Annotation
This 124-nucleotide RNA from Anaerobacillus arseniciselenatis belongs to the Rfam family "Ribosomal protein L20 leader". It is annotated as a cis-regulatory leader. A reference for the family is Zengel and Lindahl (1994), "Diverse mechanisms for regulating ribosomal protein synthesis in Escherichia coli", Prog Nucleic Acid Res Mol Biol. Rfam's curators write: This family is a putative r-protein leader autoregulatory structure found in B. subtilis and other low-GC Gram-positive bacteria.

[Rfam]
RNA sequence: CAAUGCAAGAAGGAGCGCCCGCUUCUCACCUGACUGACACAAAUGUAGUUUGCAGGUUACUUAAAUAUUGAUGAUAAUCAAUAAAGGUGUGGGCGUAGUAUGCGUCUCACACCUUUUUUAUUUA
Number, nucleotide and partner (000 for none) at each position: 001c000002a000003a000004u000005g000006c000007a000008a000009g000010a000011a026012g025013g024014a023015g022016c021017g000018c000019c000020c000021g016022c015023u014024u013025c012026u011027c000028a057029c056030c055031u000032g000033a000034c000035u000036g050037a049038c048039a046040c045041a000042a000043a000044u000045g040046u039047a000048g038049u037050u036051u000052g000053c000054a000055g030056g029057u028058u000059a000060c000061u000062u000063a000064a000065a000066u000067a000068u000069u000070g000071a000072u000073g000074a000075u000076a000077a000078u000079c000080a000081a000082u000083a000084a000085a000086g000087g000088u111089g110090u109091g108092g106093g105094c104095g103096u102097a101098g000099u000100a000101u097102g096103c095104g094105u093106c092107u000108c091109a090110c089111a088112c000113c000114u000115u000116u000117u000118u000119u000120a000121u000122u000123u000124a000